[Rfam]
RNA sequence: UGCAACCUUCGGGGGCAGGGUGGAAUUCCCGACCGGCGGUGAUAACCGGAUGACGGUUUCAGCCCGCGACUCACGAUCCGGAGGAUCGUGACUGACUUAGUGAAAAUCUAAGGCCGACGGUAUAGUCCGGAUGGGAGAAGGUGCAC
Dot-bracket structure: ....((((((.......(((.......))).[[((((((......................[[))))...((.................))....(((((.......)))))]])).(((....]]))).......))))))....
The record is a 146-nucleotide sequence from Melghirimyces profundicolus, which matches "FMN riboswitch aptamer (RFN element)" in Rfam.
Gene Ontology term of the family: FMN binding.
NCBI's taxonomy places the organism under Bacteria, Bacilli, Caryophanales, Thermoactinomycetaceae, Melghirimyces.
Pairs were carried over by alignment from the consensus structure, which is taken from published work.